[Rfam]
RNA sequence: AUCACUAUAAUACUUCGGUUUUUUGGUGAAGUGAUAUUGCACUACUAACCGUCUGCUUUGGUGGUUUGAGUCGGAAUGCUUUCCCGGAGGGGAUUCGACUCAUAGUGCAAGUACGCUUUUGUGUUCAAUUA
Numbered sequence: 001a002u003c004a005c006u007a008u009a010a011u012a013c014u015u016c017g018g019u020u021u022u023u024u025g026g027u028g029a030a031g032u033g034a035u036a037u038u039g040c041a042c043u044a045c046u047a048a049c050c051g052u053c054u055g056c057u058u059u060g061g062u063g064g065u066u067u068g069a070g071u072c073g074g075a076a077u078g079c080u081u082u083c084c085c086g087g088a089g090g091g092g093a094u095u096c097g098a099c100u101c102a103u104a105g106u107g108c109a110a111g112u113a114c115g116c117u118u119u120u121g122u123g124u125u126c127a128a129u130u131a
Stems, first nucleotide, its partner, number of pairs: 009125005028119006038109005049064005068101008082093004

nqrA-Marinomonas RNA: a 131-nucleotide RNA from Marinomonas piezotolerans.
Rfam classes the family as a small RNA.
The match comes from Rfam's covariance-model search (103 bits).